The family of this 232-nucleotide part of an RNA from Aquimarina spongiae is "Bacterial large subunit ribosomal RNA". A reference for the family is Cannone et al. (2002), "The comparative RNA web (CRW) site: an online database of comparative sequence and structure information for ribosomal, intron, and other RNAs", BMC Bioinformatics.
[Rfam]
RNA sequence: GAGUUACUUUUACUAGCAAGGUUAAGAUUUUAAGAAUCGGAGCCGUAGCGAAAGCGAGUCUGAAUAGGGCGUUAUAGUUAGUAGUAGUAGACGCGAAACCGUGUGAUCUACCCUUGGGCAGGUUGAAGCUUUGUUAACCCAAAGUGGAGGACCGAACCCGUUGACGUUGAAAAGUCUUGGGAUGACCUGAGGGUAGGGGUGAAAGGCCAAUCAAACUCGGAAAUAGCUCGUA
Number, nucleotide and partner (000 for none) at each position: 001g000002a000003g000004u000005u089006a088007c087008u086009u000010u084011u083012a082013c081014u080015a079016g078017c077018a000019a000020g044021g043022u042023u041024a000025a000026g038027a037028u036029u000030u000031u000032a000033a000034g000035a000036a028037u027038c026039g000040g000041a023042g022043c021044c020045g000046u000047a000048g055049c054050g000051a000052a000053a000054g049055c048056g000057a000058g070059u069060c068061u067062g000063a000064a000065u000066a000067g061068g060069g059070c058071g000072u000073u000074a000075u000076a000077g017078u016079u015080a014081g013082u012083a011084g010085u000086a008087g007088u006089a005090g000091a000092c230093g229094c000095g227096a000097a000098a000099c220100c219101g218102u000103g216104u215105g000106a000107u000108c196109u195110a194111c193112c192113c191114u190115u189116g188117g187118g186119c184120a000121g153122g152123u151124u150125g000126a000127a000128g145129c144130u143131u142132u141133g140134u000135u000136a000137a000138c000139c000140c133141a132142a131143a130144g129145u128146g000147g000148a000149g000150g124151a123152c122153c121154g000155a000156a000157c181158c180159c179160g000161u000162u000163g176164a175165c174166g000167u000168u000169g000170a000171a000172a000173a000174g165175u164176c163177u000178u000179g159180g158181g157182a000183u000184g119185a000186c118187c117188u116189g115190a114191g113192g112193g111194u110195a109196g108197g000198g208199g207200u206201g000202a000203a000204a000205g000206g200207c199208c198209a000210a000211u000212c000213a000214a000215a104216c103217u000218c101219g100220g099221a000222a000223a000224u000225a000226g000227c095228u000229c093230g092231u000232a000
Taxonomically the source falls in Aquimarina (Bacteria, Pseudomonadati, Flavobacteriia, Flavobacteriales).